[Rfam]
The family of this 301-nucleotide RNA sequence from Planctomyces sp. SH-PL62 is "5' ureB small RNA".
The family has 13 seed sequences and 4,812 matches in Rfam 15.1.

RNA sequence: CGUGCCAGACCUGCUGCGGGCAGAUGUAAUGGACGUGCGUGUCCAUCCCGGCGGCGGUCAGGAUCAGGUGCUCGCCGGUGAUGGCGUCGGUCGAGGUCCCGGUGGUCAGGCCGGGCGUGACCCCGUCCAUGGUCAUCGGGUUGCCCGCCUUGCCGACCCCGACGAUCCGGCCGUUGCGGAUCCCGACGUCGGCCUUGAUCACCCCCAGGAUCGGGUCCAGGAUGGUGACGUUGGUGAUCACCAGGUCGAGGCAGCCCCCCUCCUGGGUGGAGAUGUUGUCCGACCCCAUGCCGUCGCGGAG
Numbered sequence: 001c002g003u004g005c006c007a008g009a010c011c012u013g014c015u016g017c018g019g020g021c022a023g024a025u026g027u028a029a030u031g032g033a034c035g036u037g038c039g040u041g042u043c044c045a046u047c048c049c050g051g052c053g054g055c056g057g058u059c060a061g062g063a064u065c066a067g068g069u070g071c072u073c074g075c076c077g078g079u080g081a082u083g084g085c086g087u088c089g090g091u092c093g094a095g096g097u098c099c100c101g102g103u104g105g106u107c108a109g110g111c112c113g114g115g116c117g118u119g120a121c122c123c124c125g126u127c128c129a130u131g132g133u134c135a136u137c138g139g140g141u142u143g144c145c146c147g148c149c150u151u152g153c154c155g156a157c158c159c160c161g162a163c164g165a166u167c168c169g170g171c172c173g174u175u176g177c178g179g180a181u182c183c184c185g186a187c188g189u190c191g192g193c194c195u196u197g198a199u200c201a202c203c204c205c206c207a208g209g210a211u212c213g214g215g216u217c218c219a220g221g222a223u224g225g226u227g228a229c230g231u232u233g234g235u236g237a238u239c240a241c242c243a244g245g246u247c248g249a250g251g252c253a254g255c256c257c258c259c260c261u262c263c264u265g266g267g268u269g270g271a272g273a274u275g276u277u278g279u280c281c282g283a284c285c286c287c288a289u290g291c292c293g294u295c296g297c298g299g300a301g
Base pairs, nucleotide, nucleotide: 001301003299005298008295009294012164013163015161016160018076019075022072023071030053031052034050035049037048039046040045057069058068059067077154078153081150083149084148085147090145092143093142094141095137096136097135100131101130103129104128105127107125109123110122170284172282173281176279177278178277180276181275183272192229194227196225208218209217232269233268237264240261244259245258
Gene Ontology term of the family: negative regulation of gene expression. The family's consensus secondary structure was predicted with mfold.